RNA sequence: UGCAUAGAUACGGCUUUUGGAGUACUUCUAAAAAGUAUCUAUGCGCUGAGUCUUAGUUCAAGAUUAAAAAGCGCGUGGUGAGGUUUCUUGCUAGGCGUUUUUUCUUUUUA
Dot-bracket structure: (((((((((((...((((((.......)))))).)))))))))))........................(((((.(((((........))))).)))))...........
This 110-nucleotide RNA from Streptococcus henryi belongs to the Rfam family "trpB ncRNA motif".
The source organism's lineage runs through Bacteria, Bacillati, Lactobacillales, Streptococcaceae and Streptococcus.
Rfam links the family to the GO term regulation of gene expression.
From the family's description: trpB ncRNA motif was reported as a strong cis regulatory motif candidate, with potential to be a cis regulatory riboswitch type, it have been identified in Firmicutes and Fusobacteria. The motif have been recognised upstream of an uncharacterized ABC transporter with strong homology to amino acid transporters.
A search with the family's covariance model found it, with a score of 62 bits.